ZMP/ZTP riboswitch aptamer (pfl RNA motif): an 86-nucleotide RNA from Thermoflavimicrobium dichotomicum. Pairs were carried over by alignment from the consensus structure, which is taken from published work. Its family is annotated with one-carbon metabolic process and regulation of purine nucleotide biosynthetic process in the Gene Ontology.
[Rfam]
RNA sequence: AUGAUGUACAGUGACUGGCGAUUUCAUGUGGAAUGAACCACAAGGGAGCUGUACGGAUCUGGAUGCCGUUCGCCUGGGCGAGAGAC
Numbered sequence: 001a002u003g004a005u006g007u008a009c010a011g012u013g014a015c016u017g018g019c020g021a022u023u024u025c026a027u028g029u030g031g032a033a034u035g036a037a038c039c040a041c042a043a044g045g046g047a048g049c050u051g052u053a054c055g056g057a058u059c060u061g062g063a064u065g066c067c068g069u070u071c072g073c074c075u076g077g078g079c080g081a082g083a084g085a086c
Base pairs, nucleotide, nucleotide: 005055006054007053008052009051010050011049012048015045016044017074018073019072020071021070028041029040030039031038064080065079066078067077
Taxonomically the source falls in Thermoflavimicrobium (Bacteria, Bacillota, Caryophanales, Thermoactinomycetaceae).